RNA: Bacillaceae-1 RNA
RNA sequence: GAUAGGGGUUCUUCUGCUAAGAGCGCAAACGUCCUGUUUGCAACGCAGAAGUCAGCACGUCCUGUGCA
Numbered sequence: 001g002a003u004a005g006g007g008g009u010u011c012u013u014c015u016g017c018u019a020a021g022a023g024c025g026c027a028a029a030c031g032u033c034c035u036g037u038u039u040g041c042a043a044c045g046c047a048g049a050a051g052u053c054a055g056c057a058c059g060u061c062c063u064g065u066g067c068a
Base pairs, nucleotide, nucleotide: 011051012050013049014048015047016046017045026040027039028038029037030036055067056066057065058064